Overview
The family of this 124-nucleotide RNA sequence from Vulcanibacillus modesticaldus is "PyrR binding site".

[Rfam]
RNA sequence: AUGUCCUUUAAUUCAGUCCAGAGAGACUGACAAGGUGAACGGGUAGUAAUGGGUUACUAAUGGUAAUUCAGAUAAUAUUCCAUGUCUGCAAACUUUUGUCUCUAUGGGCAAAAGUUUUUUUGCU
Dot-bracket structure: ....((((....((((((......)))))).))))..............((((.((.((.(.(.....).).)).)).)))).....(.((((((((((((....)))))))))))).).....
Record summary: It is annotated as a cis-regulatory element. This family represents the PyrR binding site and terminator structure. The match comes from Rfam's covariance-model search (61 bits).